[Rfam]
RNA sequence: AAAGUUAACUAAACAGCCGCUAUUGAAUUAUGUUUUGAUAAUAAAUAGAGGAAAGUCCGGGCUCCACAGGGUAAUGAUGCCAGGUAAUGCCUGGGAAAAGAAAUUUUACGACUAGUGCCACAGAAAAAAAACCGCCAUUAUAUUUUUUUUUAAUCAUAAAUUAAAAAAUUUUAUAUAAUAGGUAAGGAUGAAAAGGUGCGGUAAGAGCGCACCGCAAAAUUGGUAACAAUUUUGGCAAGGUAAACUCCAUCUGGAGCAAGACUAAACAGGAAUUAGAUGUGACCCGCAUAAAAAAUUCCGGGUGAGUCGCUUGAAUUAAUAAGUAAUUAUUAAUCUAGAUAAAUGGCUGUUUAAAACAGAACCCGGCUUAUAAGUUAACUUUCUUU
Numbered sequence: 001a002a003a004g005u006u007a008a009c010u011a012a013a014c015a016g017c018c019g020c021u022a023u024u025g026a027a028u029u030a031u032g033u034u035u036u037g038a039u040a041a042u043a044a045a046u047a048g049a050g051g052a053a054a055g056u057c058c059g060g061g062c063u064c065c066a067c068a069g070g071g072u073a074a075u076g077a078u079g080c081c082a083g084g085u086a087a088u089g090c091c092u093g094g095g096a097a098a099a100g101a102a103a104u105u106u107u108a109c110g111a112c113u114a115g116u117g118c119c120a121c122a123g124a125a126a127a128a129a130a131a132c133c134g135c136c137a138u139u140a141u142a143u144u145u146u147u148u149u150u151u152a153a154u155c156a157u158a159a160a161u162u163a164a165a166a167a168a169u170u171u172u173a174u175a176u177a178a179u180a181g182g183u184a185a186g187g188a189u190g191a192a193a194a195g196g197u198g199c200g201g202u203a204a205g206a207g208c209g210c211a212c213c214g215c216a217a218a219a220u221u222g223g224u225a226a227c228a229a230u231u232u233u234g235g236c237a238a239g240g241u242a243a244a245c246u247c248c249a250u251c252u253g254g255a256g257c258a259a260g261a262c263u264a265a266a267c268a269g270g271a272a273u274u275a276g277a278u279g280u281g282a283c284c285c286g287c288a289u290a291a292a293a294a295a296u297u298c299c300g301g302g303u304g305a306g307u308c309g310c311u312u313g314a315a316u317u318a319a320u321a322a323g324u325a326a327u328u329a330u331u332a333a334u335c336u337a338g339a340u341a342a343a344u345g346g347c348u349g350u351u352u353a354a355a356a357c358a359g360a361a362c363c364c365g366g367c368u369u370a371u372a373a374g375u376u377a378a379c380u381u382u383c384u385u386u
Stems, first nucleotide, its partner, number of pairs: 001382010011371001012351007020048005026042001028040001053369003057366005062256004070285002076251004080094005095109001096107004110247002115245002117241003132187002134183003141177003195213006214236001215234008260308004269299006277289004315334008
RNA: Bacterial RNase P class A
Organism: Buchnera aphidicola